[Rfam]
RNA sequence: CCAAAUAUAAUAAAAAAAACUUAUUUAGGCUGUGAAUUGGCGCAGCGUUUCUACAAGACACCGUAAUGUCUAACAAUAAGUGAGCUUAAAGCUUGC
Dot-bracket structure: ..................(((((((...((((((......)))))).........(((((......)))))...)))))))...............

Notes:
Purine riboswitch aptamer: a 96-nucleotide RNA sequence from Streptococcus ferus. Taxonomically the source falls in Streptococcus (Bacteria, Bacillota, Bacilli, Lactobacillales). Rfam links the family to the GO term purine nucleobase biosynthetic process. The base pairs follow the family's consensus structure, which is taken from published work.